[Rfam]
RNA sequence: CUCCCCGAAAUGCAUUUAGGUGCAGCGUCGCGUGUUUCUUGCCGGAGGUAGAGCACUGGAUGGUCUAGGGGGCCCACAAGCUUACCGAAAUCAGCCAAACUCCGAAUGCCGGUAAGUGAGAGCGCGGCAGUGAGACUGCGGGGGAUAAGCUUCGUAGUCGAGAGGGAAACAGCCCAGAUCACCAGCUAAGGCCCCUAAGCGUGUGCUAAGUGGAAAAGGAUGUGGGGUCGCAUAGACAACCAGGAGGUUGGCUUAGAAGCAGCCACCCUUUAAAGAGUGCGUAAUAGCUCACUGGUCAAGUGGUUCCGCGCCGACAAUGUAGCGGGGCUCAAGCACACCGCCGAAGCUGUGGCAUUCACAUUUUUACUUCGCCAGGCCUUGAUGUCUGGUGCAGGUGUGUGGAUGGGUAGGGGAGCGUCGUGCCGGGGGUGAAGCAUCCGAGUGAUCGAGGUGUGGACGCGGCACGAGUGAGAAU
Numbered sequence: 001c002u003c004c005c006c007g008a009a010a011u012g013c014a015u016u017u018a019g020g021u022g023c024a025g026c027g028u029c030g031c032g033u034g035u036u037u038c039u040u041g042c043c044g045g046a047g048g049u050a051g052a053g054c055a056c057u058g059g060a061u062g063g064u065c066u067a068g069g070g071g072g073c074c075c076a077c078a079a080g081c082u083u084a085c086c087g088a089a090a091u092c093a094g095c096c097a098a099a100c101u102c103c104g105a106a107u108g109c110c111g112g113u114a115a116g117u118g119a120g121a122g123c124g125c126g127g128c129a130g131u132g133a134g135a136c137u138g139c140g141g142g143g144g145a146u147a148a149g150c151u152u153c154g155u156a157g158u159c160g161a162g163a164g165g166g167a168a169a170c171a172g173c174c175c176a177g178a179u180c181a182c183c184a185g186c187u188a189a190g191g192c193c194c195c196u197a198a199g200c201g202u203g204u205g206c207u208a209a210g211u212g213g214a215a216a217a218g219g220a221u222g223u224g225g226g227g228u229c230g231c232a233u234a235g236a237c238a239a240c241c242a243g244g245a246g247g248u249u250g251g252c253u254u255a256g257a258a259g260c261a262g263c264c265a266c267c268c269u270u271u272a273a274a275g276a277g278u279g280c281g282u283a284a285u286a287g288c289u290c291a292c293u294g295g296u297c298a299a300g301u302g303g304u305u306c307c308g309c310g311c312c313g314a315c316a317a318u319g320u321a322g323c324g325g326g327g328c329u330c331a332a333g334c335a336c337a338c339c340g341c342c343g344a345a346g347c348u349g350u351g352g353c354a355u356u357c358a359c360a361u362u363u364u365u366a367c368u369u370c371g372c373c374a375g376g377c378c379u380u381g382a383u384g385u386c387u388g389g390u391g392c393a394g395g396u397g398u399g400u401g402g403a404u405g406g407g408u409a410g411g412g413g414a415g416c417g418u419c420g421u422g423c424c425g426g427g428g429g430u431g432a433a434g435c436a437u438c439c440g441a442g443u444g445a446u447c448g449a450g451g452u453g454u455g456g457a458c459g460c461g462g463c464a465c466g467a468g469u470g471a472g473a474a475u
Base pairs, nucleotide, nucleotide: 001415002414003413004412005411006410011024012023013022014021015020026130027128028127029126030125031124032123033122036121038116039115040114041113042112043111044110045109051103052101053100057097058096059095061093062092063091064090068086069085070083071082072081073080134159135158136157137156138155139154140153141152142151143150164175165174166173179352180351181350182349184348185347186346190342191341192340199339201338202337203336204335205334206333218312219311222309223308224307225306226305227304228303229302230301231300239296240295241294242293243292245269246268247267250264251263252262270274275290279288280287353405354404355403356402357401358400359399360398416470418467419466420465421464422463423462424461425460427458434454435453436452437451438450439448440447441446
Shown here is a 475-nucleotide part of an RNA from Micromonospora inyonensis, a member of the family "Bacterial large subunit ribosomal RNA".